The family of this 139-nucleotide sequence from Digitaria exilis is "Small nucleolar RNA Z247". Rfam classes the family as a C/D-box small nucleolar RNA. NCBI's taxonomy places the organism under Eukaryota, Streptophyta, Poales, Panicoideae, Digitaria. Rfam 15.1 lists 7,071 matches to the family in 142 species. Gene Ontology terms of the family: RNA processing and nucleolus.
RNA sequence: CCGCUUGAUGAUGACGAGCUGGUGGAAUACAUCCUCACCGGCCUCGACCACGACUUCAACCCAGUUGUCUCGGCUCUCAUCGCUAGAACUGAGCCGGUCUCUGUAAGUGAGCUAUAUGCACAACUUCUUGCCUUUGAAA
Numbered sequence: 001c002c003g004c005u006u007g008a009u010g011a012u013g014a015c016g017a018g019c020u021g022g023u024g025g026a027a028u029a030c031a032u033c034c035u036c037a038c039c040g041g042c043c044u045c046g047a048c049c050a051c052g053a054c055u056u057c058a059a060c061c062c063a064g065u066u067g068u069c070u071c072g073g074c075u076c077u078c079a080u081c082g083c084u085a086g087a088a089c090u091g092a093g094c095c096g097g098u099c100u101c102u103g104u105a106a107g108u109g110a111g112c113u114a115u116a117u118g119c120a121c122a123a124c125u126u127c128u129u130g131c132c133u134u135u136g137a138a139a
Stems, first nucleotide, its partner, number of pairs: 005137004088108003092104001